[Rfam]
RNA sequence: ACUGGGAGUUGUGGCGUGCUCCUGUAAUCCAGCUACUUGGAGGUCAGUGUCUGGGAUUGUUUGAGGGCGGGGGUUCUGCUCUCCGGCGUUCUAUGUCGAUCGGGCGUCCGCACUAAGCUCGGCAUCAAUAUGGGCCUCUAGAGGGAACUCUGGGGAUCCAGGUUGUCUAAGGAGGGACGUACCGGCCCAGGGUGGAAACACAGCAGGCAAAAGUUCCCGUGUCGAGCAGUAGUGGGAUAGCGCCCGUGAAUAGGCGUCGGUUGGUAGCCCGUCCAAUAUAGUGAGACCAGAUACUUU
Numbered sequence: 001a002c003u004g005g006g007a008g009u010u011g012u013g014g015c016g017u018g019c020u021c022c023u024g025u026a027a028u029c030c031a032g033c034u035a036c037u038u039g040g041a042g043g044u045c046a047g048u049g050u051c052u053g054g055g056a057u058u059g060u061u062u063g064a065g066g067g068c069g070g071g072g073g074u075u076c077u078g079c080u081c082u083c084c085g086g087c088g089u090u091c092u093a094u095g096u097c098g099a100u101c102g103g104g105c106g107u108c109c110g111c112a113c114u115a116a117g118c119u120c121g122g123c124a125u126c127a128a129u130a131u132g133g134g135c136c137u138c139u140a141g142a143g144g145g146a147a148c149u150c151u152g153g154g155g156a157u158c159c160a161g162g163u164u165g166u167c168u169a170a171g172g173a174g175g176g177a178c179g180u181a182c183c184g185g186c187c188c189a190g191g192g193u194g195g196a197a198a199c200a201c202a203g204c205a206g207g208c209a210a211a212a213g214u215u216c217c218c219g220u221g222u223c224g225a226g227c228a229g230u231a232g233u234g235g236g237a238u239a240g241c242g243c244c245c246g247u248g249a250a251u252a253g254g255c256g257u258c259g260g261u262u263g264g265u266a267g268c269c270c271g272u273c274c275a276a277u278a279u280a281g282u283g284a285g286a287c288c289a290g291a292u293a294c295u296u297u
Stems, first nucleotide, its partner, number of pairs: 001044003004023006028041003046295009057284005065274007076267005083260006090254005096248001101246007108236002111234005117227009126165004131160004136155008166172002174217005185208003192201003
Rfam assigns this 297-nucleotide RNA from Dreissena polymorpha to the family "Metazoan signal recognition particle RNA". Its family is annotated with SRP-dependent cotranslational protein targeting to membrane, signal sequence recognition and signal recognition particle, endoplasmic reticulum targeting in the Gene Ontology. Taxonomically the source falls in Dreissena (Eukaryota, Protostomia, Lophotrochozoa, Autobranchia). About the family: The signal recognition particle (SRP) is a universally conserved ribonucleoprotein.